[Rfam]
RNA sequence: GGGAUUAUUUCGCUGAAUCUUUUUUUAGAGCGGGGGACCCGACUUUGCAGAACCUUCUGCUAGGGGUGAAUUCAGAAAUGAAAGGGCAAUUUGUUUCCAAAUCCUAACCCGACAGCUAACCUCGUAAGCGACUUAAAGGAAACAA
Numbered sequence: 001g002g003g004a005u006u007a008u009u010u011c012g013c014u015g016a017a018u019c020u021u022u023u024u025u026u027a028g029a030g031c032g033g034g035g036g037a038c039c040c041g042a043c044u045u046u047g048c049a050g051a052a053c054c055u056u057c058u059g060c061u062a063g064g065g066g067u068g069a070a071u072u073c074a075g076a077a078a079u080g081a082a083a084g085g086g087c088a089a090u091u092u093g094u095u096u097c098c099a100a101a102u103c104c105u106a107a108c109c110c111g112a113c114a115g116c117u118a119a120c121c122u123c124g125u126a127a128g129c130g131a132c133u134u135a136a137a138g139g140a141a142a143c144a145a
Base pairs, nucleotide, nucleotide: 011130012129013128014127018029019028020027030125031124032123033122034121035120040063064110065109066108072081073080074079084104085103086102

The record is a 145-nucleotide RNA from Peribacillus asahii, which matches "c-di-AMP riboswitch aptamer (ydaO/yuaA leader)" in Rfam.